[Rfam]
RNA sequence: CAUAACAAUGAGCGCCGAGCUGUAGUGCCUAAAUGCCUGAAACAGGUACAGGGUUUUACAGCCGUGGCUGUCAGCUGUUGUUGACCUGCCGCCAGGGCCAGAGAAGAAAUUUUCUGGCCUCCCGAUCUUGGAAAGGUGUUCCAUGACCGUAUUG
Numbered sequence: 001c002a003u004a005a006c007a008a009u010g011a012g013c014g015c016c017g018a019g020c021u022g023u024a025g026u027g028c029c030u031a032a033a034u035g036c037c038u039g040a041a042a043c044a045g046g047u048a049c050a051g052g053g054u055u056u057u058a059c060a061g062c063c064g065u066g067g068c069u070g071u072c073a074g075c076u077g078u079u080g081u082u083g084a085c086c087u088g089c090c091g092c093c094a095g096g097g098c099c100a101g102a103g104a105a106g107a108a109a110u111u112u113u114c115u116g117g118c119c120u121c122c123c124g125a126u127c128u129u130g131g132a133a134a135g136g137u138g139u140u141c142c143a144u145g146a147c148c149g150u151a152u153u154g
Stems, first nucleotide, its partner, number of pairs: 006145001011140006019062007027054003034048005064092005095120011121131002
The family of this 154-nucleotide RNA sequence from Oceanospirillales bacterium LUC14_002_19_P2 is "Molybdenum/Tungsten riboswitch aptamer (Moco RNA motif)". The match comes from Rfam's covariance-model search (85 bits). The organism belongs to Oceanospirillales, within Bacteria.